[Rfam]
RNA: Mammalian CPEB3 ribozyme
Organism: Alligator sinensis
RNA sequence: UUUGCUAUAAUAGCCAUAGUCGAAGCAUUUAUAUUGCAGCCCCUGUCAGAUUCCAAUGAAUCUGCUAAAUUGUGCU
Numbered sequence: 001u002u003u004g005c006u007a008u009a010a011u012a013g014c015c016a017u018a019g020u021c022g023a024a025g026c027a028u029u030u031a032u033a034u035u036g037c038a039g040c041c042c043c044u045g046u047c048a049g050a051u052u053c054c055a056a057u058g059a060a061u062c063u064g065c066u067a068a069a070u071u072g073u074g075c076u
Base pairs, nucleotide, nucleotide: 013040014039018076019075020074023071024070025037026036027035047064048063049062050061051060052059053058